[Rfam]
RNA sequence: CGGCUGUUGCUUAAUCAAACGGCUGAGAAGUUAACUGGCCGGUUGUCGUGAUUAAUUUCCGUCGACUGCUUACCGUACUUCUCAUAUUU
Numbered sequence: 001c002g003g004c005u006g007u008u009g010c011u012u013a014a015u016c017a018a019a020c021g022g023c024u025g026a027g028a029a030g031u032u033a034a035c036u037g038g039c040c041g042g043u044u045g046u047c048g049u050g051a052u053u054a055a056u057u058u059c060c061g062u063c064g065a066c067u068g069c070u071u072a073c074c075g076u077a078c079u080u081c082u083c084a085u086a087u088u089u
Base pairs, nucleotide, nucleotide: 025083026082027081028080029079030078031077037070038069039068045066046065047064048063

Small nucleolar RNA snoR109: an 89-nucleotide sequence from Hibiscus trionum. A reference for the family is Marker et al. (2002), "Experimental RNomics: identification of 140 candidates for small non-messenger RNAs in the plant Arabidopsis thaliana", Curr Biol. NCBI's taxonomy places the organism under Eukaryota, Embryophyta, Magnoliopsida, Malvales, Hibiscus. The base pairs follow the family's consensus structure, which was predicted with WAR. A search with the family's covariance model found it, with a score of 62 bits. Its family is annotated with RNA processing and nucleolus in the Gene Ontology.